[Rfam]
RNA sequence: AUUGAGUGGAGCAGGAACCACUUUAAUAAACGGGGCGUCUUUUUCCGAAAAGCCUUACGAGUAGGAAAACA
Numbered sequence: 001a002u003u004g005a006g007u008g009g010a011g012c013a014g015g016a017a018c019c020a021c022u023u024u025a026a027u028a029a030a031c032g033g034g035g036c037g038u039c040u041u042u043u044u045c046c047g048a049a050a051a052g053c054c055u056u057a058c059g060a061g062u063a064g065g066a067a068a069a070c071a
Stems, first nucleotide, its partner, number of pairs: 006021004034054003041065002
RNA: DUF805 RNA